[Rfam]
RNA sequence: UCCAUAAGUAAUAAAAAGUCCGAUUAAGUCCCUUAAUUUUAUUUAAAGUAUCACUUUGGUCUUUUCUGUUAAUUUAAUUCAAAAAAAAGUUAAAUUUUGGUCCAUUAACUUAUUUAAUUAGUAUUAGUUUGGUCUCUUAUCUUAUUUAAUUAGUAUUAGUUUGGUCCUUAAACUUAACAUUUUUUUGAAUUAAAUUAACUGAAAGGACCAAACUGAUACUUUAAAUAAAGUUAAGGGAUAUUUGAAAUCAAGUUAAGAGA
Numbered sequence: 001u002c003c004a005u006a007a008g009u010a011a012u013a014a015a016a017a018g019u020c021c022g023a024u025u026a027a028g029u030c031c032c033u034u035a036a037u038u039u040u041a042u043u044u045a046a047a048g049u050a051u052c053a054c055u056u057u058g059g060u061c062u063u064u065u066c067u068g069u070u071a072a073u074u075u076a077a078u079u080c081a082a083a084a085a086a087a088a089g090u091u092a093a094a095u096u097u098u099g100g101u102c103c104a105u106u107a108a109c110u111u112a113u114u115u116a117a118u119u120a121g122u123a124u125u126a127g128u129u130u131g132g133u134c135u136c137u138u139a140u141c142u143u144a145u146u147u148a149a150u151u152a153g154u155a156u157u158a159g160u161u162u163g164g165u166c167c168u169u170a171a172a173c174u175u176a177a178c179a180u181u182u183u184u185u186u187g188a189a190u191u192a193a194a195u196u197a198a199c200u201g202a203a204a205g206g207a208c209c210a211a212a213c214u215g216a217u218a219c220u221u222u223a224a225a226u227a228a229a230g231u232u233a234a235g236g237g238a239u240a241u242u243u244g245a246a247a248u249c250a251a252g253u254u255a256a257g258a259g260a
Stems, first nucleotide, its partner, number of pairs: 003257001005255003023242001025240001029238001031236013045222003
RNA: MIR2655 microRNA precursor family
Organism: Medicago truncatula